[Rfam]
Nucleotides: 083
Base pairs, nucleotide, nucleotide: 008077009076010075012073013072014071015070016069018067019065021063022062023061024060025059027057028056033051034050035049038046039045
Number, partner (000 for none) and nucleotide at each position: 001000u002000u003000a004000a005000c006000u007000c008077a009076a010075a011000c012073u013072u014071g015070u016069a017000u018067g019065a020000g021063u022062u023061g024060g025059a026000a027057c028056g029000u030000g031000u032000g033051c034050c035049u036000a037000c038046g039045u040000u041000u042000g043000c044000c045039g046038c047000u048000a049035g050034g051033g052000g053000u054000g055000c056028u057027g058000a059025u060024c061023c062022a063021a064000a065019u066000g067018c068000g069016u070015a071014c072013a073012a074000a075010u076009u077008u078000g079000a080000g081000u082000a083000a
Record summary:
Shown here is an 83-nucleotide RNA from Bombyx mori, a member of the family "mir-2807 microRNA precursor family". The family's consensus secondary structure was predicted with RNAalifold. For this family Rfam cites "Novel microRNAs in silkworm (Bombyx mori)" (Cai et al., Funct Integr Genomics, 2010). It scores 66 bits against the family's covariance model.